[Rfam]
RNA sequence: UCAUCAUCACCAUUACUCCUGAUUAUCUUUCAGGCGUUUGGUGUGGCUUGGAAGAUAAUUUCUUCCGAGUGUGCGACAAAUAAGUCAUAGUAGGUUUAAAACCUCUCGGAAGUCAAACACCGAGAGGUUUUUUUA
Numbered sequence: 001u002c003a004u005c006a007u008c009a010c011c012a013u014u015a016c017u018c019c020u021g022a023u024u025a026u027c028u029u030u031c032a033g034g035c036g037u038u039u040g041g042u043g044u045g046g047c048u049u050g051g052a053a054g055a056u057a058a059u060u061u062c063u064u065c066c067g068a069g070u071g072u073g074c075g076a077c078a079a080a081u082a083a084g085u086c087a088u089a090g091u092a093g094g095u096u097u098a099a100a101a102c103c104u105c106u107c108g109g110a111a112g113u114c115a116a117a118c119a120c121c122g123a124g125a126g127g128u129u130u131u132u133u134u135a
Stems, first nucleotide, its partner, number of pairs: 008045003011040002018034005048067001050066006098131012112118001
Histidine operon leader: a 135-nucleotide RNA from Pasteurella felis.
NCBI's taxonomy places the organism under Bacteria, Pseudomonadota, Gammaproteobacteria, Pasteurellales, Pasteurella.
A search with the family's covariance model found it, with a score of 59 bits.
Gene Ontology term of the family: histidine biosynthetic process.
Rfam's curators write: At least 6 amino acid operons are known to be regulated by attenuation. In each a leader sequence of 150-200 bp is found upstream of the first gene in the operon. This leader sequence can assume two different secondary structures known as the terminator and the anti-terminator structure. In each case the leader also codes for very short peptide sequence that is rich in the end product amino acid of the operon.